A member of the RNA family "SAM riboswitch aptamer (S box leader)" from Pontibacillus yanchengensis, 117 nucleotides long.
Pairs were carried over by alignment from the consensus structure, which is taken from published work.
Gene Ontology term of the family: regulation of gene expression.
The source organism's lineage runs through Bacteria, Bacilli, Bacillaceae, Pontibacillus and Pontibacillus yanchengensis.
RNA sequence: CUCUUAUCUAGAGUGGCAGAGGGAAUAGGCCCUGCGAAGCCCGGCAACCUUUCAUAGGAACGAUGUUGAAAAAGGUGCUAAAUCCUACAGAUUCUAAAAAAAUCUGGAAGAUAAGAG
Numbered sequence: 001c002u003c004u005u006a007u008c009u010a011g012a013g014u015g016g017c018a019g020a021g022g023g024a025a026u027a028g029g030c031c032c033u034g035c036g037a038a039g040c041c042c043g044g045c046a047a048c049c050u051u052u053c054a055u056a057g058g059a060a061c062g063a064u065g066u067u068g069a070a071a072a073a074g075g076u077g078c079u080a081a082a083u084c085c086u087a088c089a090g091a092u093u094c095u096a097a098a099a100a101a102a103u104c105u106g107g108a109a110g111a112u113a114a115g116a117g
Stems, first nucleotide, its partner, number of pairs: 001117008013042001015041003021032003026087004043079004048075002050071004083109001088106006